[Rfam]
RNA sequence: AUACCUUCUCUUGUGUAUUCUCAAGAGAUGCAACCUCAGAUGCUUCA
Numbered sequence: 001a002u003a004c005c006u007u008c009u010c011u012u013g014u015g016u017a018u019u020c021u022c023a024a025g026a027g028a029u030g031c032a033a034c035c036u037c038a039g040a041u042g043c044u045u046c047a
Stems, first nucleotide, its partner, number of pairs: 010025004032044001034042001
The record is a 47-nucleotide RNA from Dioscorea zingiberensis, which matches "Plastid-ycf3 group II-D1 intron" in Rfam. The match comes from Rfam's covariance-model search (61 bits). The family has 385 seed sequences and 1,488 matches in Rfam 15.1. A reference for the family is Richter et al. (2023), "Retrograde signaling in plants: A critical review focusing on the GUN pathway and beyond", Plant Commun. Rfam links the family to the GO term Group II intron splicing. Rfam's curators write: Plastid rpl16 is a non-coding RNA (ncRNA) recognised in plastids. It was recognised in and intronic region of a ribosome rpl16 gene. The organism belongs to Dioscorea, within Eukaryota.